[Rfam]
RNA: Bacterial RNase P class A
Organism: Methylotuvimicrobium alcaliphilum
RNA sequence: AGAGUCGGCCGGACAGUCGCUGUUUUGCCUUAGGGUAGAAGAGAGGAAAGUCCGGGCUCCAUUGGGCAGAGUGCCAGGUAAUGCCUGGGAGGCGCGAGUCUACGGAAAGUGCCACAGAAAAUAUACCGCCCCUUACCUAGAUCUUAAUUCUAGGUAAGGGGUAAGGGUGAAAUGGUGCGGUAAGAGCGCACCGCGCGGCUGGCAACAGGCGUGGCAGGGUAAACCCCACUCGGAGCAAGAUCAAAUAGGGGAACAGACGCGUGGCCCGCGCGGUUCCCGGGUAGAUCGCUCGAGCCGUAAGGUGACUUGCGGCCUAGAUGAAUGACUGUUCGCGACAGAACCCGGCUUACAGGCCGACUCUUUUC
Numbered sequence: 001a002g003a004g005u006c007g008g009c010c011g012g013a014c015a016g017u018c019g020c021u022g023u024u025u026u027g028c029c030u031u032a033g034g035g036u037a038g039a040a041g042a043g044a045g046g047a048a049a050g051u052c053c054g055g056g057c058u059c060c061a062u063u064g065g066g067c068a069g070a071g072u073g074c075c076a077g078g079u080a081a082u083g084c085c086u087g088g089g090a091g092g093c094g095c096g097a098g099u100c101u102a103c104g105g106a107a108a109g110u111g112c113c114a115c116a117g118a119a120a121a122u123a124u125a126c127c128g129c130c131c132c133u134u135a136c137c138u139a140g141a142u143c144u145u146a147a148u149u150c151u152a153g154g155u156a157a158g159g160g161g162u163a164a165g166g167g168u169g170a171a172a173u174g175g176u177g178c179g180g181u182a183a184g185a186g187c188g189c190a191c192c193g194c195g196c197g198g199c200u201g202g203c204a205a206c207a208g209g210c211g212u213g214g215c216a217g218g219g220u221a222a223a224c225c226c227c228a229c230u231c232g233g234a235g236c237a238a239g240a241u242c243a244a245a246u247a248g249g250g251g252a253a254c255a256g257a258c259g260c261g262u263g264g265c266c267c268g269c270g271c272g273g274u275u276c277c278c279g280g281g282u283a284g285a286u287c288g289c290u291c292g293a294g295c296c297g298u299a300a301g302g303u304g305a306c307u308u309g310c311g312g313c314c315u316a317g318a319u320g321a322a323u324g325a326c327u328g329u330u331c332g333c334g335a336c337a338g339a340a341c342c343c344g345g346c347u348u349a350c351a352g353g354c355c356g357a358c359u360c361u362u363u364u365c
Stems, first nucleotide, its partner, number of pairs: 001361010011350001012330007020043002023040006048348003052345005057235004064267004069231005074088005089103001090101004104226002109224002111220003126166002128162014174192006193215001194213004199208003239287004249278006258272005294313008